[Rfam]
RNA sequence: UAUUAGGUUGGUGCAAAAGUAAUUGAGGUUUUCACCAUUAAAAAUAAUGGUAAAAUUAUUAUUAAUGGUGAAAACCACAAUUACUUUUGCACCAACCUAAUA
Numbered sequence: 001u002a003u004u005a006g007g008u009u010g011g012u013g014c015a016a017a018a019g020u021a022a023u024u025g026a027g028g029u030u031u032u033c034a035c036c037a038u039u040a041a042a043a044a045u046a047a048u049g050g051u052a053a054a055a056u057u058a059u060u061a062u063u064a065a066u067g068g069u070g071a072a073a074a075c076c077a078c079a080a081u082u083a084c085u086u087u088u089g090c091a092c093c094a095a096c097c098u099a100a101u102a
Stems, first nucleotide, its partner, number of pairs: 001102025027076014
RNA: mir-548 microRNA precursor family
Organism: Papio anubis